[Rfam]
RNA sequence: CCCGCAGCCGGACAAAAAGACCCCGUGGAGCUUUACUGCAGCUUGGCGCUGGAGGCCGGGCUUAGAUGCGUAGAAUAGGUGGGAGGCGAUGAACCGUUCCUUUUGGGGGGCGGGGAGCCAAUAGUGAAAUACCACUCUUCUAUGUUUGUCCUCCUAACCUGUGAGCAAGCAUGGGAACAGCGCCUGGUGGGCAGUUUGACUGGGGCGGUCGCCUCCUAAAAGGUAACGGAGGCGCGCAAUGGUCCCCUCAGGGUGGAUGGCAAUCACCCGACGAGUGUAUUGGUAUAAGGGGGCUUGACUGCGAGACGGACAUGUCGAGCAGGGACGAAAGUCGGUCAAAGUGAUCCUACGGUCCCGAGUGGAAGGGCCGUGGCUUAUCGGAUACAAGCUACCCCGGGGAUAACAGGCUGAUCCUGCCCAAGAGUUCAUAUCGACGGCAGGGUUUGGCACCUCGAUGUCGGCUCGUCGCAUCCUGGGGCUGAAUCAGGUCCCAAGGGUUGGGCUGUUCGCCCAUUAAAGCGGUACGCGAGCUGGGUUCAGAACGUCGUGAGACAGUUCGGUCUCUAUCCGCUGUGGGCGUA
Numbered sequence: 001c002c003c004g005c006a007g008c009c010g011g012a013c014a015a016a017a018a019g020a021c022c023c024c025g026u027g028g029a030g031c032u033u034u035a036c037u038g039c040a041g042c043u044u045g046g047c048g049c050u051g052g053a054g055g056c057c058g059g060g061c062u063u064a065g066a067u068g069c070g071u072a073g074a075a076u077a078g079g080u081g082g083g084a085g086g087c088g089a090u091g092a093a094c095c096g097u098u099c100c101u102u103u104u105g106g107g108g109g110g111c112g113g114g115g116a117g118c119c120a121a122u123a124g125u126g127a128a129a130u131a132c133c134a135c136u137c138u139u140c141u142a143u144g145u146u147u148g149u150c151c152u153c154c155u156a157a158c159c160u161g162u163g164a165g166c167a168a169g170c171a172u173g174g175g176a177a178c179a180g181c182g183c184c185u186g187g188u189g190g191g192c193a194g195u196u197u198g199a200c201u202g203g204g205g206c207g208g209u210c211g212c213c214u215c216c217u218a219a220a221a222g223g224u225a226a227c228g229g230a231g232g233c234g235c236g237c238a239a240u241g242g243u244c245c246c247c248u249c250a251g252g253g254u255g256g257a258u259g260g261c262a263a264u265c266a267c268c269c270g271a272c273g274a275g276u277g278u279a280u281u282g283g284u285a286u287a288a289g290g291g292g293g294c295u296u297g298a299c300u301g302c303g304a305g306a307c308g309g310a311c312a313u314g315u316c317g318a319g320c321a322g323g324g325a326c327g328a329a330a331g332u333c334g335g336u337c338a339a340a341g342u343g344a345u346c347c348u349a350c351g352g353u354c355c356c357g358a359g360u361g362g363a364a365g366g367g368c369c370g371u372g373g374c375u376u377a378u379c380g381g382a383u384a385c386a387a388g389c390u391a392c393c394c395c396g397g398g399g400a401u402a403a404c405a406g407g408c409u410g411a412u413c414c415u416g417c418c419c420a421a422g423a424g425u426u427c428a429u430a431u432c433g434a435c436g437g438c439a440g441g442g443u444u445u446g447g448c449a450c451c452u453c454g455a456u457g458u459c460g461g462c463u464c465g466u467c468g469c470a471u472c473c474u475g476g477g478g479c480u481g482a483a484u485c486a487g488g489u490c491c492c493a494a495g496g497g498u499u500g501g502g503c504u505g506u507u508c509g510c511c512c513a514u515u516a517a518a519g520c521g522g523u524a525c526g527c528g529a530g531c532u533g534g535g536u537u538c539a540g541a542a543c544g545u546c547g548u549g550a551g552a553c554a555g556u557u558c559g560g561u562c563u564c565u566a567u568c569c570g571c572u573g574u575g576g577g578c579g580u581a
Stems, first nucleotide, its partner, number of pairs: 001577008010569003015563001022398004027394002029390005035195004042187002045184004051154005057148005063142004068137001078136005085119003094113008158175003198210004211233006234379001236336002242294006248274002251269006275284002299322004305316003324333003347373007355366002407448003411445001412442007422432002459534001460532004464526001465523005472497002475492006499513005540558004544553003
Rfam assigns this 581-nucleotide part of an RNA from uncultured Chloroflexi bacterium HF0200_09I09 to the family "Bacterial large subunit ribosomal RNA". The organism belongs to Chloroflexota, within Bacteria. Pairs were carried over by alignment from the consensus structure, which is taken from published work.